[Rfam]
Nucleotides: 148
Stems, first nucleotide, its partner, number of pairs: 008107005047084005052078001055077002058074003062070001086097001088096001114144002117140001119138005125132002
Number, partner (000 for none) and nucleotide at each position: 001000a002000u003000u004000g005000a006000a007000u008107g009106g010105g011104a012103a013000u014000a015000g016000a017000u018000u019000a020000c021000a022000a023000a024000u025000a026000u027000a028000a029000u030000u031000u032000g033000a034000a035000u036000g037000g038000a039000g040000a041000a042000u043000c044000c045000u046000a047084a048083u049082u050081u051080a052078a053000c054000u055077g056076c057000g058074u059073u060072u061000c062070u063000a064000g065000u066000u067000g068000u069000u070062a071000u072060a073059a074058a075000u076056g077055u078052u079000g080051u081050a082049a083048a084047u085000c086097u087000a088096u089000u090000u091000a092000a093000u094000u095000c096088a097086a098000u099000u100000a101000g102000g103012u104011u105010c106009c107008c108000c109000a110000c111000c112000a113000a114144a115143a116000a117140c118000c119138c120137c121136a122135c123134c124000a125132a126131a127000a128000u129000a130000c131126u132125u133000c134123g135122g136121u137120g138119g139000a140117g141000u142000c143115u144114u145000u146000u147000u148000a
The family of this 148-nucleotide RNA from Gemella haemolysans is "Listeria sRNA rli38". The source organism's lineage runs through Bacteria, Bacillota, Caryophanales, Gemella and Gemella haemolysans. It is annotated as a small RNA. For this family Rfam cites "The Listeria transcriptional landscape from saprophytism to virulence" (Toledo-Arana et al., Nature, 2009).